[Rfam]
RNA sequence: UAAGCCCGCAAGGCCGACGCAAACGCGCCGCCGGUGCAAGCCCGGCCUCGCUCCCACCAGGGCGGGGGCGCUCAUGGGCCAAAA
Numbered sequence: 001u002a003a004g005c006c007c008g009c010a011a012g013g014c015c016g017a018c019g020c021a022a023a024c025g026c027g028c029c030g031c032c033g034g035u036g037c038a039a040g041c042c043c044g045g046c047c048u049c050g051c052u053c054c055c056a057c058c059a060g061g062g063c064g065g066g067g068g069c070g071c072u073c074a075u076g077g078g079c080c081a082a083a084a
Stems, first nucleotide, its partner, number of pairs: 004079004013069003018027003030046004047066006
RNA: Twister_sister_ribozyme